Source information:
Rfam assigns this 35-nucleotide RNA sequence to the family "DUF805b RNA".
RNA sequence: AUAGCGUAAGCCGAAAAGCUAAAAAUGAGUAGGCA
Numbered sequence: 001a002u003a004g005c006g007u008a009a010g011c012c013g014a015a016a017a018g019c020u021a022a023a024a025a026u027g028a029g030u031a032g033g034c035a
Base pairs, nucleotide, nucleotide: 002021003020004019005018010034011033012032